[Rfam]
Glycine riboswitch aptamer: a 99-nucleotide RNA from Ruminiclostridium cellobioparum. It scores 59 bits against the family's covariance model. Taxonomically the source falls in Ruminiclostridium cellobioparum subsp. termitidis (Bacteria, Bacillati, Clostridia, Ruminiclostridium cellobioparum). About the family: This family represents the bacterial glycine riboswitch. Glycine riboswitches usually consist of two metabolite-binding aptamers domains with similar structures in tandem.

RNA sequence: AUGAUGGAGGCAGGAGAGACCGUUUUCGGCACCGAAGAAGAAAAUUGCAAUAGGUCGUAUUGCAGUGAACCUUUCAGGUAAAAGGACUGUUUUCGGACA
Numbered sequence: 001a002u003g004a005u006g007g008a009g010g011c012a013g014g015a016g017a018g019a020c021c022g023u024u025u026u027c028g029g030c031a032c033c034g035a036a037g038a039a040g041a042a043a044a045u046u047g048c049a050a051u052a053g054g055u056c057g058u059a060u061u062g063c064a065g066u067g068a069a070c071c072u073u074u075c076a077g078g079u080a081a082a083a084g085g086a087c088u089g090u091u092u093u094c095g096g097a098c099a
Base pairs, nucleotide, nucleotide: 006094007093008092009091010090011089012088013087020029021028022027031079032078033077034075035074038073039072040071044066045065046064047063048062049061050060051059052058